[Rfam]
This 128-nucleotide sequence from Atractosteus spatula belongs to the Rfam family "Small nucleolar RNA SNORA47". Rfam links the family to the GO terms nucleolus and RNA processing. The match comes from Rfam's covariance-model search (52 bits). The base pairs follow the family's consensus structure, which was predicted with WAR.

RNA sequence: CGGAGGAUUGAGAAGGUUGAGCAGCAGCUGUGCGGCUUUAACUGGUUACAACCUCCAAAACUAAUGAUUCAGUUGCAGCCUCCUGUUCUGUGAUAAUACCAUGCACAGAGCGUUGCUGCGUCUGCUUA
Dot-bracket structure: .(((((........((((((((.((......)).)))).))))........))))).................(((((...(.....(((((.((......)))))))...)...)))))........